[Rfam]
RNA: Small nucleolar RNA U25
RNA sequence: UGCUGAUGAUAUCAACCACAGACCUGUUCUGAGAAGAAUGAGGACAGCUAGUGUCUCUGAAUAGCUC
Numbered sequence: 001u002g003c004u005g006a007u008g009a010u011a012u013c014a015a016c017c018a019c020a021g022a023c024c025u026g027u028u029c030u031g032a033g034a035a036g037a038a039u040g041a042g043g044a045c046a047g048c049u050a051g052u053g054u055c056u057c058u059g060a061a062u063a064g065c066u067c
Stems, first nucleotide, its partner, number of pairs: 002065003024047006